[Rfam]
RNA: transfer-messenger RNA
RNA sequence: GGGGGUGAAAAGGGUUCGACGAGGAUGUAGAAGGUUUAAGCUGCAUGCCGGGGAUUCCUAUCUCCUCGUGAAAAAGAUAGGACAAAACAAGUGCCAAUGAUUAUGGCUAUGCCCUGGCUGCUUAAUUAAGACAGCCAGCGUCUGCCCAGUCCGGCCUGCAGGACUGAGGACAGGCGUCGGUAAAGCAGGCUAGCUAUUAAAUGGUGCCCAUAACAUUUAAUAGCGAAACUUUAAAUGGGCUAGCUUUUGUCCUUUUUGUUCGGAAAAAGGGCAAAGGCGAAUAUGGGAAUCCGGACUAAGCAUGUAGAUGCUUAAACUUAGCAUCCUCGGACGCGGGUUCGAUUCCCGCCACCUCCACCA
Numbered sequence: 001g002g003g004g005g006u007g008a009a010a011a012g013g014g015u016u017c018g019a020c021g022a023g024g025a026u027g028u029a030g031a032a033g034g035u036u037u038a039a040g041c042u043g044c045a046u047g048c049c050g051g052g053g054a055u056u057c058c059u060a061u062c063u064c065c066u067c068g069u070g071a072a073a074a075a076g077a078u079a080g081g082a083c084a085a086a087a088c089a090a091g092u093g094c095c096a097a098u099g100a101u102u103a104u105g106g107c108u109a110u111g112c113c114c115u116g117g118c119u120g121c122u123u124a125a126u127u128a129a130g131a132c133a134g135c136c137a138g139c140g141u142c143u144g145c146c147c148a149g150u151c152c153g154g155c156c157u158g159c160a161g162g163a164c165u166g167a168g169g170a171c172a173g174g175c176g177u178c179g180g181u182a183a184a185g186c187a188g189g190c191u192a193g194c195u196a197u198u199a200a201a202u203g204g205u206g207c208c209c210a211u212a213a214c215a216u217u218u219a220a221u222a223g224c225g226a227a228a229c230u231u232u233a234a235a236u237g238g239g240c241u242a243g244c245u246u247u248u249g250u251c252c253u254u255u256u257u258g259u260u261c262g263g264a265a266a267a268a269g270g271g272c273a274a275a276g277g278c279g280a281a282u283a284u285g286g287g288a289a290u291c292c293g294g295a296c297u298a299a300g301c302a303u304g305u306a307g308a309u310g311c312u313u314a315a316a317c318u319u320a321g322c323a324u325c326c327u328c329g330g331a332c333g334c335g336g337g338u339u340c341g342a343u344u345c346c347c348g349c350c351a352c353c354u355c356c357a358c359c360a
Base pairs, nucleotide, nucleotide: 001356002355003354004353005352006351007350020329021328022327023326024325025324026323027322028321032318033317035315037314038313039312040311041310044304045303046302047301048300049068050067051066052065053064056082057081058080059079060078061077062076114138115137116136117135118134119133120132139176140175141174142173143172144171145168147166148165149164150163151162152161154190155189156188157187158186159185193224194223195222196221197220198219199218200217201216206240207239208238209237210236243278244277245276246275247274248273249272250271251270252269254267255266256265258296259295260294261293262292263291264290333349334348335347336346337345